RNA sequence: CUCCCCGAAAGCUAUUUAGGUAGUGCCUCAUCGAGCACUCCUGGGGGUAGAGCACUGUUUAGGCUAGCGGGUCAUCCCGACUUAGCAAACCUAUGCAAACUCCGAAUACCAGGAAGUGAACCGGUGGGAGACACACGGCGGGUGCUAACGUCCGUCGUGAAGAGGGAAAUAACCCAGACCGCCAGCUAAGGCCCCAAAUUCAUGGCUAAGUGGUGAACGAUGUGGGAAGGCAUAGACAGCCAGGAGGUUGGCUUAGAAGCAGCCAUCCUUUAAAGAAAGCGUAAUAGCUCACUGGUCUAGUCGGCCCGCGCGGAAGAUUUAACGGGGCUCAAGCCAUGAGCCGAAGCUGCGGAUCUGCACGCAAGUGCAGGUGGUAGGGGAGCGUUCUGUACGCCUGUGAAGGUGCACUGCGAGGUGUGCUGGAGGUAUCAGAAGUGCGAAU
Number, nucleotide and partner (000 for none) at each position: 001c382002u381003c380004c379005c378006c377007g000008a000009a000010a000011g024012c023013u022014a021015u020016u000017u000018a000019g000020g015021u014022a013023g012024u011025g000026c130027c128028u127029c126030a125031u124032c123033g122034a000035g121036c118037a117038c116039u114040c113041c112042u111043g110044g109045g000046g000047g000048u000049a000050g103051a101052g100053c000054a000055c000056u097057g096058u095059u000060u093061a092062g091063g090064c000065u000066a000067g086068c085069g083070g082071g081072u080073c079074a000075u000076c000077c000078c000079g073080a072081c071082u070083u069084a000085g068086c067087a000088a000089a000090c063091c062092u061093a060094u000095g058096c057097a056098a000099a000100c052101u051102c000103c050104g000105a000106a000107u000108a000109c044110c043111a042112g041113g040114a039115a000116g038117u037118g036119a000120a000121c035122c033123g032124g031125u030126g029127g028128g027129a000130g026131a000132c000133a000134c159135a158136c157137g156138g155139c154140g153141g152142g151143u150144g000145c000146u000147a000148a000149c000150g143151u142152c141153c140154g139155u138156c137157g136158u135159g134160a000161a000162g000163a000164g175165g174166g173167a000168a000169a000170u000171a000172a000173c166174c165175c164176a000177g000178a000179c352180c351181g350182c349183c000184a348185g347186c346187u000188a000189a000190g342191g341192c340193c000194c000195c000196a000197a000198a000199u339200u000201c338202a337203u336204g335205g334206c333207u000208a000209a000210g000211u000212g000213g000214u000215g000216a000217a000218c312219g311220a000221u000222g309223u308224g307225g306226g305227a000228a000229g302230g301231c300232a000233u000234a000235g000236a000237c000238a000239g296240c295241c294242a293243g292244g000245a269246g268247g267248u000249u000250g264251g263252c262253u000254u000255a000256g000257a000258a000259g000260c000261a000262g252263c251264c250265a000266u000267c247268c246269u245270u274271u000272a000273a000274a270275g290276a000277a000278a000279g288280c287281g000282u000283a000284a000285u000286a000287g280288c279289u000290c275291a000292c243293u242294g241295g240296u239297c000298u000299a000300g231301u230302c229303g000304g000305c226306c225307c224308g223309c222310g000311c219312g218313g000314a000315a000316g000317a000318u000319u000320u000321a000322a000323c000324g000325g000326g000327g000328c000329u000330c000331a000332a000333g206334c205335c204336a203337u202338g201339a199340g192341c191342c190343g000344a000345a000346g186347c185348u184349g182350c181351g180352g179353a372354u371355c370356u369357g368358c367359a366360c365361g000362c000363a000364a000365g360366u359367g358368c357369a356370g355371g354372u353373g000374g000375u000376a000377g006378g005379g004380g003381a002382g001383c437384g000385u434386u433387c432388u431389g430390u000391a000392c000393g427394c426395c425396u000397g000398u000399g000400a000401a000402g421403g420404u419405g418406c417407a416408c415409u414410g000411c000412g000413a000414g409415g408416u407417g406418u405419g404420c403421u402422g000423g000424a000425g395426g394427u393428a000429u000430c389431a388432g387433a386434a385435g000436u000437g383438c000439g000440a000441a000442u000
This 442-nucleotide part of an RNA from Povalibacter uvarum belongs to the Rfam family "Bacterial large subunit ribosomal RNA". The match comes from Rfam's covariance-model search (2856 bits). The organism belongs to Povalibacter, within Bacteria.